[Rfam]
RNA sequence: UAAUGCCAUUUGGUAUCUGACUCAUGGUCUCUUUUGUGACUAUGUGUCUUGAAAUAUGGCAUAGAGCAAUGGGGAACGGAUCUUGCGACACUGGUGGUUUCUUGAUAAGCCUCUAGUUACUAUAUAGCCAUUUACAUGU
Numbered sequence: 001u002a003a004u005g006c007c008a009u010u011u012g013g014u015a016u017c018u019g020a021c022u023c024a025u026g027g028u029c030u031c032u033u034u035u036g037u038g039a040c041u042a043u044g045u046g047u048c049u050u051g052a053a054a055u056a057u058g059g060c061a062u063a064g065a066g067c068a069a070u071g072g073g074g075a076a077c078g079g080a081u082c083u084u085g086c087g088a089c090a091c092u093g094g095u096g097g098u099u100u101c102u103u104g105a106u107a108a109g110c111c112u113c114u115a116g117u118u119a120c121u122a123u124a125u126a127g128c129c130a131u132u133u134a135c136a137u138g139u
Stems, first nucleotide, its partner, number of pairs: 004061006019048003023044007075132002078129002090117005096111004
The family of this 139-nucleotide sequence from Oryza meyeriana is "Small nucleolar RNA F1/F2/snoR5a". The source organism's lineage runs through Eukaryota, Embryophyta, Petrosaviidae, Oryza and Oryza meyeriana. From the family's description: This family contains F1, F2 and snoR5a sequences, all of which are members of the the H/ACA class of snoRNA that guide the sites of modification of uridines to pseudouridines. The family's consensus secondary structure was predicted with PFOLD. It is annotated as an H/ACA-box small nucleolar RNA.